[Rfam]
RNA sequence: CGGUUGCUUACGAGUAAAUCAAAGCCUCAUUUCACACACACACGAGAAUCGAAACGAUUACUCUAGAAGGAUAGGUUUCAUCCCUUCUUCCUGUCCGUUCCUGACGUUGACUCGUGAGCAACUAACUUCCUUCA
Numbered sequence: 001c002g003g004u005u006g007c008u009u010a011c012g013a014g015u016a017a018a019u020c021a022a023a024g025c026c027u028c029a030u031u032u033c034a035c036a037c038a039c040a041c042a043c044g045a046g047a048a049u050c051g052a053a054a055c056g057a058u059u060a061c062u063c064u065a066g067a068a069g070g071a072u073a074g075g076u077u078u079c080a081u082c083c084c085u086u087c088u089u090c091c092u093g094u095c096c097g098u099u100c101c102u103g104a105c106g107u108u109g110a111c112u113c114g115u116g117a118g119c120a121a122c123u124a125a126c127u128u129c130c131u132u133c134a
Stems, first nucleotide, its partner, number of pairs: 002123011019104003044063003047059005066100003069096007
The family of this 134-nucleotide RNA from Methanosarcina mazei is "Archaeal Small RNA 154". About the family: Exclusively expressed under nitrogen deficiency, has a central regulatory role in nitrogen metabolism affecting nitrogenase and glutamine synthetase by masking the ribosome binding site or positively affecting transcript stability. Global nitrogen repressor NrpR direct binding. Its family is annotated with nitrogen fixation, regulation of mRNA stability and negative regulation of translational initiation in the Gene Ontology. The organism belongs to Methanosarcina mazei, within Archaea. The literature on the family includes a 2017 paper in RNA Biol by Prasse et al., "sRNA154 a newly identified regulator of nitrogen fixation in Methanosarcina mazei strain Go1". Rfam's curators put it in the seed alignment.